[Rfam]
RNA: RT-12 RNA
Organism: Cupriavidus basilensis
RNA sequence: UAACAUUAAGCGGCCAAAGCCCAUGCAAAUGGGUGAGAUGAUGCGAAGAGCGUUUGUGUAUAUCCGGGGGAGUGGCCUAUAGGAAUGCCGCCAACCUUCAUUCCCCCGGUUUGCUAGG
Numbered sequence: 001u002a003a004c005a006u007u008a009a010g011c012g013g014c015c016a017a018a019g020c021c022c023a024u025g026c027a028a029a030u031g032g033g034u035g036a037g038a039u040g041a042u043g044c045g046a047a048g049a050g051c052g053u054u055u056g057u058g059u060a061u062a063u064c065c066g067g068g069g070g071a072g073u074g075g076c077c078u079a080u081a082g083g084a085a086u087g088c089c090g091c092c093a094a095c096c097u098u099c100a101u102u103c104c105c106c107c108g109g110u111u112u113g114c115u116a117g118g
Base pairs, nucleotide, nucleotide: 010091011090012089013088014087019034020033021032022031023030024029041053042052043051044050054118055117058114059113060112064109065108066107067106068105069104070103071102072101073100081097082096083095